[Rfam]
RNA sequence: GGAACCUGUACUCGUUGCGGAGCAACGAUCGCAAAACA
Numbered sequence: 001g002g003a004a005c006c007u008g009u010a011c012u013c014g015u016u017g018c019g020g021a022g023c024a025a026c027g028a029u030c031g032c033a034a035a036a037c038a
Base pairs, nucleotide, nucleotide: 005031013027014026015025016024017023018022
Annotation
The record is a 38-nucleotide RNA sequence from Hominibacterium faecale, which matches "Selenocysteine insertion sequence 4" in Rfam. The family has 24 seed sequences and 436 matches in Rfam 15.1. The match comes from Rfam's covariance-model search (45 bits).